[Rfam]
RNA sequence: CAAAACGCGAUGAAGAGAAGAGUAAGGAAGAACGUUCUUUCACAGAGAGCUCCGCCCGCUGAAAUGGAGCAAAGAACUUCUCCCCGAACCAAGCCUCUGAGCAGCAUGAAGGAACCUUCGCGGGGGAUGACAUGACGGGAGCUCCCGUUACAGAGCUAGAGUAUAAGCAUUGGAUCCAGUGCCGUACUUGAAGAGGUUAAUAUGGCGACAUAUUAAUGAACCUGGGGUGGUACCGCGAAAAUUUCGUCCCCAAG
Number, nucleotide and partner (000 for none) at each position: 001c000002a000003a000004a000005a000006c000007g102008c101009g000010a000011u000012g000013a000014a000015g097016a096017g095018a000019a000020g000021a000022g000023u000024a000025a000026g084027g083028a000029a081030g080031a000032a000033c000034g000035u000036u000037c000038u073039u072040u071041c000042a000043c000044a000045g000046a000047g000048a000049g070050c069051u068052c067053c066054g065055c000056c000057c000058g000059c000060u000061g000062a000063a000064a000065u054066g053067g052068a051069g050070c049071a040072a039073a038074g000075a000076a000077c000078u000079u000080c030081u029082c000083c027084c026085c000086g000087a000088a000089c000090c000091a000092a000093g000094c000095c017096u016097c015098u000099g000100a000101g008102c007103a000104g000105c134106a133107u132108g131109a000110a000111g128112g000113a000114a000115c000116c000117u000118u000119c000120g000121c000122g000123g000124g000125g000126g000127a000128u111129g000130a000131c108132a107133u106134g105135a000136c147137g146138g145139g000140a000141g000142c000143u000144c000145c138146c137147g136148u000149u000150a000151c000152a000153g000154a000155g000156c000157u000158a000159g000160a000161g000162u000163a000164u000165a000166a000167g000168c000169a000170u000171u000172g000173g000174a000175u000176c000177c000178a000179g000180u000181g000182c000183c000184g000185u000186a000187c000188u000189u000190g000191a000192a000193g000194a000195g000196g217197u216198u215199a214200a213201u212202a211203u000204g000205g000206c000207g000208a000209c000210a000211u202212a201213u200214u199215a198216a197217u196218g000219a000220a000221c000222c000223u000224g251225g250226g249227g248228u000229g000230g000231u000232a000233c000234c000235g247236c246237g245238a244239a243240a000241a000242u000243u239244u238245c237246g236247u235248c227249c226250c225251c224252a000253a000254g000